This 122-nucleotide sequence from Peromyscus maniculatus belongs to the Rfam family "Small Cajal body specific RNA 4".
Pairs were carried over by alignment from the consensus structure, which was predicted with RNAfold.
scaRNAs are a specific class of small nuclear RNAs which localise to the Cajal bodies and guide the modification of RNA polymerase II transcribed spliceosomal RNAs U1, U2, U4, U5 and U12. ACA26 belongs to the H/ACA box class of guide RNAs as it has the predicted hairpin-hinge-hairpin-tail structure, conserved H/ACA-box motifs and is found associated with GAR1.
Gene Ontology terms of the family: RNA processing, Cajal body and nucleolus.
It scores 81 bits against the family's covariance model.
Its Rfam clan is "SCARNA4 clan".
[Rfam]
Nucleotides: 122
Base pairs, nucleotide, nucleotide: 002061003060004058005057006056007055008054017045018044019043021041022040023039024038026036068115069114070113078106079104080103081102083100084099085098088097089096
Number, partner (000 for none) and nucleotide at each position: 001000g002061c003060u004058g005057g006056a007055g008054g009000a010000c011000c012000a013000g014000g015000a016000a017045g018044g019043c020000u021041g022040a023039g024038u025000a026036u027000g028000a029000g030000g031000a032000a033000g034000c035000a036026a037000g038024a039023c040022u041021c042000u043019g044018c045017c046000g047000a048000c049000c050000c051000a052000c053000c054008u055007c056006u057005c058004c059000u060003a061002g062000a063000c064000a065000a066000a067000g068115g069114g070113u071000g072000g073000a074000g075000a076000g077000c078106g079104c080103a081102g082000c083100u084099c085098u086000u087000a088097g089096g090000a091000g092000a093000a094000a095000g096089c097088c098085a099084g100083g101000a102081c103080u104079g105000g106078c107000u108000g109000u110000c111000c112000u113070a114069c115068c116000c117000a118000c119000a120000u121000u122000c